[Rfam]
RNA sequence: UUGCGCCUGCGAAGGACGCAGCAUCGCCCAUCGGAUUGCCUUGCAGGCGGCAGGGUGAUGUCCCCGUCCGGUGAUCAGCAAUUUUGCUGAUUCAAAAUCAUUCC
Numbered sequence: 001u002u003g004c005g006c007c008u009g010c011g012a013a014g015g016a017c018g019c020a021g022c023a024u025c026g027c028c029c030a031u032c033g034g035a036u037u038g039c040c041u042u043g044c045a046g047g048c049g050g051c052a053g054g055g056u057g058a059u060g061u062c063c064c065c066g067u068c069c070g071g072u073g074a075u076c077a078g079c080a081a082u083u084u085u086g087c088u089g090a091u092u093c094a095a096a097a098u099c100a101u102u103c104c
Stems, first nucleotide, its partner, number of pairs: 005048007014069002017066002021061008037052004075090006
Shown here is a 104-nucleotide RNA sequence, a member of the family "RT-5 RNA". By type it is a small RNA.